[Rfam]
RNA sequence: UUCUUAUCUAGAGAGGUUUAGGGACUGGCCCGAUGACACCUCAGCAACCGCCUGUUAUGGCAUGGUGCUAAUUCCAGCAAGUCGAUGAAAUGACUUGGUAGAUGAGGA
Number, nucleotide and partner (000 for none) at each position: 001u108002u107003c106004u105005u104006a103007u102008c101009u000010a000011g000012a000013g042014a041015g040016g039017u038018u000019u000020a000021g031022g030023g029024a000025c077026u076027g075028g074029c023030c022031c021032g000033a000034u000035g000036a000037c000038a017039c016040c015041u014042c013043a069044g068045c067046a066047a000048c065049c064050g061051c060052c059053u000054g000055u000056u000057a000058u000059g052060g051061c050062a000063u000064g049065g048066u046067g045068c044069u043070a000071a000072u000073u100074c028075c027076a026077g025078c097079a096080a095081g094082u093083c092084g000085a000086u000087g000088a000089a000090a000091u000092g083093a082094c081095u080096u079097g078098g000099u000100a073101g008102a007103u006104g005105a004106g003107g002108a001
Rfam assigns this 108-nucleotide RNA sequence from Psychrobacillus soli to the family "SAM riboswitch aptamer (S box leader)". About the family: The SAM riboswitch is found upstream of a number of genes which code for proteins involved in methionine or cysteine biosynthesis in Gram-positive bacteria.